[Rfam]
RNA: Plastid-rps12 3UTR RNA
Organism: Eulaliopsis binata
RNA sequence: GGUUUCUUUUGGUGCAAAUCCAAUCAUCUAGAUUGGAAGAAGCAAUUCCCCCAUUGGUAACAAAUGGUUAUCCAUUAAGCGGAGGAAAUAGUAA
Numbered sequence: 001g002g003u004u005u006c007u008u009u010u011g012g013u014g015c016a017a018a019u020c021c022a023a024u025c026a027u028c029u030a031g032a033u034u035g036g037a038a039g040a041a042g043c044a045a046u047u048c049c050c051c052c053a054u055u056g057g058u059a060a061c062a063a064a065u066g067g068u069u070a071u072c073c074a075u076u077a078a079g080c081g082g083a084g085g086a087a088a089u090a091g092u093a094a
Base pairs, nucleotide, nucleotide: 009023010022011021012020048084051082052081053075054074056072057071058070059069060068061067